[Rfam]
RNA sequence: AUCUCCUAGUGUUCACUGUAGGCCUGUUAUGGUUAUUUUGCAGUCAUAAGGCACGCGGUGAAUGCCAAGAGCA
Numbered sequence: 001a002u003c004u005c006c007u008a009g010u011g012u013u014c015a016c017u018g019u020a021g022g023c024c025u026g027u028u029a030u031g032g033u034u035a036u037u038u039u040g041c042a043g044u045c046a047u048a049a050g051g052c053a054c055g056c057g058g059u060g061a062a063u064g065c066c067a068a069g070a071g072c073a
Base pairs, nucleotide, nucleotide: 003071004070005069009065010064011063012062013061014060015059016058018056019055023051024050025049028048029047030046031045032044